[Rfam]
This 265-nucleotide part of an RNA from Ketobacter alkanivorans belongs to the Rfam family "Bacterial large subunit ribosomal RNA". It scores 2861 bits against the family's covariance model. The family has 102 seed sequences and 51,934 matches in Rfam 15.1.
RNA sequence: GGAGAUUUGAGGAGAGUUGUUCCUAGUACGAGAGGACCGGAAUGAACGAACCUCUGGUGUUCGGGUUGUCACGCCAGUGGCAUUGCCCGGUAGCUAUGUUCGGACAGGAUAACCGCUGAAAGCAUCUAAGCGGGAAGCCCCCUUCAAGAUUAGAUCUCCCUGAGGACUUGAUCCUCCUAAAGGACCGUCGAAGACUACGACGUUGAUAGGCUGGGUGUGGAAGCGUUGUGAGGCGUUAAGCUAACCAGUACUAAUUGUCCGUGAG
Number, nucleotide and partner (000 for none) at each position: 001g159002g158003a157004g156005a155006u154007u153008u152009g000010a000011g145012g144013a143014g142015a000016g000017u045018u044019g043020u042021u041022c040023c039024u000025a000026g000027u000028a000029c000030g000031a000032g000033a000034g000035g000036a000037c000038c000039g023040g022041a021042a020043u019044g018045a017046a000047c102048g101049a100050a099051c098052c000053u000054c000055u096056g095057g094058u000059g000060u000061u000062c089063g088064g087065g086066u085067u082068g081069u080070c079071a078072c077073g000074c000075c000076a000077g072078u071079g070080g069081c068082a067083u000084u000085g066086c065087c064088c063089g062090g000091u000092a000093g000094c057095u056096a055097u000098g051099u050100u049101c048102g047103g000104a000105c000106a000107g139108g138109a000110u000111a000112a000113c133114c132115g131116c130117u129118g000119a000120a000121a000122g000123c000124a000125u000126c000127u000128a000129a117130g116131c115132g114133g113134g000135a000136a000137g000138c108139c107140c000141c000142c014143u013144u012145c011146a000147a000148g000149a000150u000151u000152a008153g007154a006155u005156c004157u003158c002159c001160c000161u000162g176163a175164g174165g173166a172167c000168u000169u000170g000171a000172u166173c165174c164175u163176c162177c000178u000179a262180a000181a000182g260183g259184a258185c257186c202187g201188u200189c199190g198191a000192a000193g000194a000195c000196u000197a000198c190199g189200a188201c187202g186203u000204u000205g000206a000207u253208a252209g251210g249211c248212u247213g246214g245215g000216u000217g241218u000219g000220g237221a000222a000223g236224c235225g234226u233227u232228g000229u000230g000231a000232g227233g226234c225235g224236u223237u220238a000239a000240g000241c217242u000243a000244a000245c214246c213247a212248g211249u210250a000251c209252u208253a207254a000255u000256u000257g185258u184259c183260c182261g000262u179263g000264a000265g000
Gene Ontology terms of the family: structural constituent of ribosome and ribosome.